[Rfam]
RNA sequence: CUAUUCCUUCGGGGUCGGGUGCAAUUCCCAACCGGCGGUGAUGAAGCUCAAAGCUUCUUAGUCCGUGACCCGCUUCAAGCGGUGGAUCUGGUGAAACUCCAGAGCCGACAGUAAUAGUCUGGAUGGGAGAAGGAAACA
Numbered sequence: 001c002u003a004u005u006c007c008u009u010c011g012g013g014g015u016c017g018g019g020u021g022c023a024a025u026u027c028c029c030a031a032c033c034g035g036c037g038g039u040g041a042u043g044a045a046g047c048u049c050a051a052a053g054c055u056u057c058u059u060a061g062u063c064c065g066u067g068a069c070c071c072g073c074u075u076c077a078a079g080c081g082g083u084g085g086a087u088c089u090g091g092u093g094a095a096a097c098u099c100c101a102g103a104g105c106c107g108a109c110a111g112u113a114a115u116a117g118u119c120u121g122g123a124u125g126g127g128a129g130a131a132g133g134a135a136a137c138a
Stems, first nucleotide, its partner, number of pairs: 004135007017029003031118002033107002035066004061105002070082002087103005109121003
FMN riboswitch aptamer (RFN element): a 138-nucleotide RNA sequence from Pueribacillus theae. It scores 111 bits against the family's covariance model. Pairs were carried over by alignment from the consensus structure, which is taken from published work. Taxonomically the source falls in Pueribacillus (Bacteria, Bacillati, Bacillota, Bacillaceae).